[Rfam]
RNA: Potassium channel RNA editing signal
RNA sequence: GUAGGCUAUGGUGAUAUAUAUCCUAAGACUUUACUAGGUAAAAUUGUUGGAGGAUUGUGUUGCAUUGCUGGAGUGCUGGUAAUUGCUCUACCUAUUCCCAUCAUAGUCAACAAU
Numbered sequence: 001g002u003a004g005g006c007u008a009u010g011g012u013g014a015u016a017u018a019u020a021u022c023c024u025a026a027g028a029c030u031u032u033a034c035u036a037g038g039u040a041a042a043a044u045u046g047u048u049g050g051a052g053g054a055u056u057g058u059g060u061u062g063c064a065u066u067g068c069u070g071g072a073g074u075g076c077u078g079g080u081a082a083u084u085g086c087u088c089u090a091c092c093u094a095u096u097c098c099c100a101u102c103a104u105a106g107u108c109a110a111c112a113a114u
Stems, first nucleotide, its partner, number of pairs: 001114002004111001008107002011104001013102003020095002037077004049063001051061001